[Rfam]
RNA: Bacterial RNase P class A
Organism: Nordella sp. HKS 07
RNA sequence: CCAGCUGGCCGGAUGGCCGCCGGGGAGGCCGCGAGGCCUUCCGGGAGGAAAGUCCGGGCUCCAUGGAAAUACGGUGCCGGGUAACGCCCGGCGGGGGUGACCCCAGGGAUAGUGCCACAGAGAACAGACCGCUUCAGAUCAGUCCGAAGCAAGGGUGAAACGGUGCGGCAAGAGCGCACCGCGCGGCCGGCAACGGGCGCGGCACGGUAAACCCCACCGGGAGCAAGACCGAAUAGGGGCGGCAUGGGCUUCGGCCCAGGGGCAUUUUCAACCCGCCGCCCGGGUUGGUCGCGCGAAGCGCAUGGCAACAUGCGCUCCAGAUGAAUGGUCAUCCAGCGUCCGCGAGGAUGCGGACAGAACCCGGCUUAUAGGCCAGCUGGCACU
Numbered sequence: 001c002c003a004g005c006u007g008g009c010c011g012g013a014u015g016g017c018c019g020c021c022g023g024g025g026a027g028g029c030c031g032c033g034a035g036g037c038c039u040u041c042c043g044g045g046a047g048g049a050a051a052g053u054c055c056g057g058g059c060u061c062c063a064u065g066g067a068a069a070u071a072c073g074g075u076g077c078c079g080g081g082u083a084a085c086g087c088c089c090g091g092c093g094g095g096g097g098u099g100a101c102c103c104c105a106g107g108g109a110u111a112g113u114g115c116c117a118c119a120g121a122g123a124a125c126a127g128a129c130c131g132c133u134u135c136a137g138a139u140c141a142g143u144c145c146g147a148a149g150c151a152a153g154g155g156u157g158a159a160a161c162g163g164u165g166c167g168g169c170a171a172g173a174g175c176g177c178a179c180c181g182c183g184c185g186g187c188c189g190g191c192a193a194c195g196g197g198c199g200c201g202g203c204a205c206g207g208u209a210a211a212c213c214c215c216a217c218c219g220g221g222a223g224c225a226a227g228a229c230c231g232a233a234u235a236g237g238g239g240c241g242g243c244a245u246g247g248g249c250u251u252c253g254g255c256c257c258a259g260g261g262g263c264a265u266u267u268u269c270a271a272c273c274c275g276c277c278g279c280c281c282g283g284g285u286u287g288g289u290c291g292c293g294c295g296a297a298g299c300g301c302a303u304g305g306c307a308a309c310a311u312g313c314g315c316u317c318c319a320g321a322u323g324a325a326u327g328g329u330c331a332u333c334c335a336g337c338g339u340c341c342g343c344g345a346g347g348a349u350g351c352g353g354a355c356a357g358a359a360c361c362c363g364g365c366u367u368a369u370a371g372g373c374c375a376g377c378u379g380g381c382a383c384u
Stems, first nucleotide, its partner, number of pairs: 001380010011369001012333007020045002023042006050367003054364005059223004068268002072219005077091005092106001093104004107214002112212002114208003129154002131150005137144002162180006181203001182201004187196003227290004237281006260274003297316008